[Rfam]
A member of the RNA family "Guanidine-II riboswitch aptamer (mini-ykkC)" from Caulifigura coniformis, 46 nucleotides long.
RNA sequence: CAUACGGGACGACCCGUGCGGCUUCUCUCAUCCGGGGACGGCCCCG
Numbered sequence: 001c002a003u004a005c006g007g008g009a010c011g012a013c014c015c016g017u018g019c020g021g022c023u024u025c026u027c028u029c030a031u032c033c034g035g036g037g038a039c040g041g042c043c044c045c046g
Base pairs, nucleotide, nucleotide: 001018002017005016006015007014008013033046034045035044036043037042
It scores 40 bits against the family's covariance model. Taxonomically the source falls in Caulifigura (Bacteria, Pseudomonadati, Planctomycetota, Planctomycetia). The family's consensus secondary structure is taken from published work.